The family of this 372-nucleotide RNA from Leucobacter ruminantium is "transfer-messenger RNA". Its family is annotated with RNA catabolic process in the Gene Ontology. For this family Rfam cites "Probing the structure of the Escherichia coli 10Sa RNA (tmRNA)" (Felden et al., RNA, 1997).

RNA sequence: GGGGCCGAUCGGUUUCGACACGUCGAUUUGAGACUGUGAGAAGCGAGCCGAGGACGCGGAGUUAUCUCGUAAACGCCCUUCGCAAAUCAUAGGUGCCAACGCUAAGCGCACCGACUUCGCUCUCGCUGCCUAAGCACGAGACCGAGUCCGUCAGGUCGGGUGGGCCUCCGCCCCGGUUUCCUGGCGUCAUCUAGGGGGCUUGCUGAUGCGUCGCGUCUCAGGGCGCAUCGGGACUUUCACUGAGACUGGGCCUGUCACCCUAGGUGUUCGUGACAAAGGAUGGGGCCGAGCAGAACGUCUGCACGAACUACGCUCGUAGAAGGCACGGAAUCGUCGAAGUGGACCGGGGUUCGAUUCCCCGCGGCUCCACCG
Dot-bracket structure: (((((((...........(((.(((((......(((((.....((((([[[[[..((((((...]]]]]........)))))).....................................(((((.(((....)))))))).......((((((.((((((..[[[[[[)))).))....)))))).......]]]]]]...(((((((((...[..[....)))))))))............]..].(((((..((...(....[[[[[[[..).....)))))))............]]]..]]]]...))))).......)))))....))))).)))...(((((.......))))))))))))....